[Rfam]
RNA sequence: CAAGCACCUAAACCCAAGAACUGCUGUUUGCUGUAGCUGCAGUUGAAACAGGUGCUAACAGCAAGUGGAUCUUGUCGCCUUUGGGGGCUGUGACUGUGCCCCUCAAAGUGAAUUGGAAGGUUCUACACUC
Numbered sequence: 001c002a003a004g005c006a007c008c009u010a011a012a013c014c015c016a017a018g019a020a021c022u023g024c025u026g027u028u029u030g031c032u033g034u035a036g037c038u039g040c041a042g043u044u045g046a047a048a049c050a051g052g053u054g055c056u057a058a059c060a061g062c063a064a065g066u067g068g069a070u071c072u073u074g075u076c077g078c079c080u081u082u083g084g085g086g087g088c089u090g091u092g093a094c095u096g097u098g099c100c101c102c103u104c105a106a107a108g109u110g111a112a113u114u115g116g117a118a119g120g121u122u123c124u125a126c127a128c129u130c
Base pairs, nucleotide, nucleotide: 003056004055005054006053007052008051009050019044020043021042022041023040024039026037027036028035067123068122069121070120071119072118073117079108080107081106082105083104084102085101086100087099088098
RNA: Small nucleolar RNA SNORA68
Organism: Myotis lucifugus